[Rfam]
A member of the RNA family "DUF3800-X RNA" from Ferroglobus placidus, 93 nucleotides long. It is annotated as a small RNA. Taxonomically the source falls in Ferroglobus placidus (Archaea, Archaeoglobi, Archaeoglobales, Ferroglobus). Rfam's curators put it in the seed alignment.
RNA sequence: AGGCGGGUAAGGUCGGGGCCUACUAUGCCCCCCUCCGUCCGAAACGAUGAGGCCUCCUUGAGGAGGGUGGGAUGGAGUAGGACGGGGCCGCCG
Numbered sequence: 001a002g003g004c005g006g007g008u009a010a011g012g013u014c015g016g017g018g019c020c021u022a023c024u025a026u027g028c029c030c031c032c033c034u035c036c037g038u039c040c041g042a043a044a045c046g047a048u049g050a051g052g053c054c055u056c057c058u059u060g061a062g063g064a065g066g067g068u069g070g071g072a073u074g075g076a077g078u079a080g081g082a083c084g085g086g087g088c089c090g091c092c093g
Stems, first nucleotide, its partner, number of pairs: 002092005033087008053066005